This 68-nucleotide sequence from Chrysemys picta belongs to the Rfam family "Small nucleolar RNA SNORD75".
NCBI's taxonomy places the organism under Eukaryota, Eumetazoa, Euteleostomi, Archelosauria, Chrysemys picta.
It is annotated as a C/D-box small nucleolar RNA.
For this family Rfam cites "Purified box C/D snoRNPs are able to reproduce site-specific 2'-O-methylation of target RNA in vitro" (Galardi et al., Mol Cell Biol, 2002).
The match comes from Rfam's covariance-model search (58 bits).
Gene Ontology terms of the family: RNA processing and nucleolus.
[Rfam]
RNA sequence: AGCCUGUGAUGACUUGGAUUAUAAGAGUAGUGGACAGAACAGGUUUCUGAAAACUUCACUCUGAGGCU
Numbered sequence: 001a002g003c004c005u006g007u008g009a010u011g012a013c014u015u016g017g018a019u020u021a022u023a024a025g026a027g028u029a030g031u032g033g034a035c036a037g038a039a040c041a042g043g044u045u046u047c048u049g050a051a052a053a054c055u056u057c058a059c060u061c062u063g064a065g066g067c068u
Base pairs, nucleotide, nucleotide: 001068002067003066004065